[Rfam]
RNA sequence: CUGGCUCCGGUUCACGCCCGCCCGACGGCGAAUGGCGACCCGGUGCC
Numbered sequence: 001c002u003g004g005c006u007c008c009g010g011u012u013c014a015c016g017c018c019c020g021c022c023c024g025a026c027g028g029c030g031a032a033u034g035g036c037g038a039c040c041c042g043g044u045g046c047c
Base pairs, nucleotide, nucleotide: 003047004046005045007043008042009041010040015037016036017035018034022030
RNA: L31-Actinobacteria ribosomal protein leader
Organism: Actinopolymorpha pittospori